[Rfam]
RNA sequence: AUGUGACCUGUGGACUUCCCUUUGUCAUCCUAUGCCUGGAGUAAUAGAGGGGGCUGGGAAGUCAAAGGGACGCUCAGGCGUCAUCAUU
Number, nucleotide and partner (000 for none) at each position: 001a000002u000003g000004u000005g000006a000007c000008c000009u000010g000011u000012g000013g000014a000015c000016u000017u070018c069019c068020c067021u066022u065023u000024g063025u000026c000027a000028u059029c058030c057031u056032a055033u000034g054035c053036c052037u051038g000039g000040a000041g000042u000043a000044a000045u000046a000047g000048a000049g000050g000051g037052g036053g035054c034055u032056g031057g030058g029059a028060a000061g000062u000063c024064a000065a022066a021067g020068g019069g018070a017071c000072g000073c000074u000075c000076a000077g000078g000079c000080g000081u000082c000083a000084u000085c000086a000087u000088u000